The record is a 126-nucleotide sequence, which matches "LOOT RNA" in Rfam.
[Rfam]
RNA sequence: CGCCUAACCUUUAUAGAUUUUCCUAUGAAGCAUGGCCCCAAACCCAUCCCUGAUAUUAAACUCCUCGUCAGACCACUCAGGGAUGGGUCUAUAGCCGAAAGGCUGUAGGAUAGUCGAAAGACUGUC
Numbered sequence: 001c002g003c004c005u006a007a008c009c010u011u012u013a014u015a016g017a018u019u020u021u022c023c024u025a026u027g028a029a030g031c032a033u034g035g036c037c038c039c040a041a042a043c044c045c046a047u048c049c050c051u052g053a054u055a056u057u058a059a060a061c062u063c064c065u066c067g068u069c070a071g072a073c074c075a076c077u078c079a080g081g082g083a084u085g086g087g088u089c090u091a092u093a094g095c096c097g098a099a100a101g102g103c104u105g106u107a108g109g110a111u112a113g114u115c116g117a118a119a120g121a122c123u124g125u126c
Stems, first nucleotide, its partner, number of pairs: 002036003009030007043087011089108008109126006
Pairs were carried over by alignment from the consensus structure, which is taken from published work.